The record is a 117-nucleotide sequence from Macleaya cordata, which matches "Small nucleolar RNA snoR104" in Rfam.
Its family is annotated with nucleolus and RNA processing in the Gene Ontology.
The family has 8 seed sequences and 612 matches in Rfam 15.1.
For this family Rfam cites "Experimental RNomics: identification of 140 candidates for small non-messenger RNAs in the plant Arabidopsis thaliana" (Marker et al., Curr Biol, 2002).
The match comes from Rfam's covariance-model search (80 bits).
RNA sequence: GGGGUGCAUCCAAAAAGCGAUGUUACCUGAUACAAUCUUCCUACAGGAAGAAUCAGUAAUUUCCUGCUUGUAGAUCUGGAAGCAAGUUCUGCAAGUCUCAAAUUACCGGACAUAAUC
Number, nucleotide and partner (000 for none) at each position: 001g028002g027003g026004g000005u000006g023007c022008a021009u020010c019011c000012a000013a000014a000015a000016a000017g000018c000019g010020a009021u008022g007023u006024u000025a000026c003027c002028u001029g000030a000031u000032a000033c000034a000035a000036u000037c000038u000039u000040c000041c000042u000043a000044c000045a000046g000047g000048a000049a000050g000051a000052a000053u110054c109055a000056g000057u000058a000059a000060u000061u000062u000063c000064c000065u000066g096067c095068u094069u093070g092071u091072a090073g089074a000075u000076c086077u085078g000079g000080a000081a000082g000083c000084a000085a077086g076087u000088u000089c073090u072091g071092c070093a069094a068095g067096u066097c000098u000099c000100a000101a000102a000103u000104u000105a000106c000107c000108g000109g054110a053111c000112a000113u000114a000115a000116u000117c000
The organism belongs to Macleaya, within Eukaryota. The base pairs follow the family's consensus structure, which was predicted with WAR.